This 111-nucleotide sequence from Arthrobacter sp. PAMC 25486 belongs to the Rfam family "SAM (S-adenosyl methionine) riboswitch aptamer".
SAM-IV is a mRNA element that regulates gene expression via direct sensing of S-adenosylmethionine (SAM or AdoMet).
The source organism's lineage runs through Bacteria, Bacillati, Actinomycetota, Actinomycetes and Arthrobacter.
Pairs were carried over by alignment from the consensus structure, which is taken from published work.

RNA sequence: CUUCAAGAGAUGCGGUGCCAAGCUCCGACUGGCCGCACGCCAACCCCAUGCUUCACGGGUGGUUCGGAUGAGGAAGCGGCCGGCGGAAACCUCCGUUGGCAAGAGCAAGCA
Numbered sequence: 001c002u003u004c005a006a007g008a009g010a011u012g013c014g015g016u017g018c019c020a021a022g023c024u025c026c027g028a029c030u031g032g033c034c035g036c037a038c039g040c041c042a043a044c045c046c047c048a049u050g051c052u053u054c055a056c057g058g059g060u061g062g063u064u065c066g067g068a069u070g071a072g073g074a075a076g077c078g079g080c081c082g083g084c085g086g087a088a089a090c091c092u093c094c095g096u097u098g099g100c101a102a103g104a105g106c107a108a109g110c111a
Base pairs, nucleotide, nucleotide: 001076002075003074004073009038011037012036013035014034015033016032021030022029039063040062041061044059045058046057049055079100080099081098082097083096084095085094086093087092